RNA sequence: UAAUAGAAUAGGCUUGCAAGGGCGGUCGGCUAGUCUCCCGGAAGGGAGGUGAUGCCUGAUGGAAGUAUUUCAAACACUAACGCUUAUGAUCUCAUUUGCGUCUUUAGUUGUUCUUAUACUUUCUUUCCAUAAUAAAAAGUAGACCGCCCUCUCACUAAGGUAUUCGGUCUACUUUUUGUCCAUUAUCCUUUUGUUGCAGCCACCGCCCUUAAGAGCGGCUAUUACUGGGGAGUCAUGUUAGCGCAUGGCUC
Numbered sequence: 001u002a003a004u005a006g007a008a009u010a011g012g013c014u015u016g017c018a019a020g021g022g023c024g025g026u027c028g029g030c031u032a033g034u035c036u037c038c039c040g041g042a043a044g045g046g047a048g049g050u051g052a053u054g055c056c057u058g059a060u061g062g063a064a065g066u067a068u069u070u071c072a073a074a075c076a077c078u079a080a081c082g083c084u085u086a087u088g089a090u091c092u093c094a095u096u097u098g099c100g101u102c103u104u105u106a107g108u109u110g111u112u113c114u115u116a117u118a119c120u121u122u123c124u125u126u127c128c129a130u131a132a133u134a135a136a137a138a139g140u141a142g143a144c145c146g147c148c149c150u151c152u153c154a155c156u157a158a159g160g161u162a163u164u165c166g167g168u169c170u171a172c173u174u175u176u177u178g179u180c181c182a183u184u185a186u187c188c189u190u191u192u193g194u195u196g197c198a199g200c201c202a203c204c205g206c207c208c209u210u211a212a213g214a215g216c217g218g219c220u221a222u223u224a225c226u227g228g229g230g231a232g233u234c235a236u237g238u239u240a241g242c243g244c245a246u247g248g249c250u251c
Stems, first nucleotide, its partner, number of pairs: 001224005009202001011201004015154002019150004024144001026142001031052001033050001035048005061123007075088002098114001100112001157176003203218004230251009